[Rfam]
This 60-nucleotide sequence belongs to the Rfam family "Transposase-1 RNA".
RNA sequence: CAUUAAGAGGCUAUCUCUGUCGUUACCCACUACAUGUGGAUACGGGAAUAUAGCUGUUAA
Numbered sequence: 001c002a003u004u005a006a007g008a009g010g011c012u013a014u015c016u017c018u019g020u021c022g023u024u025a026c027c028c029a030c031u032a033c034a035u036g037u038g039g040a041u042a043c044g045g046g047a048a049u050a051u052a053g054c055u056g057u058u059a060a
Stems, first nucleotide, its partner, number of pairs: 009055006020045004027039003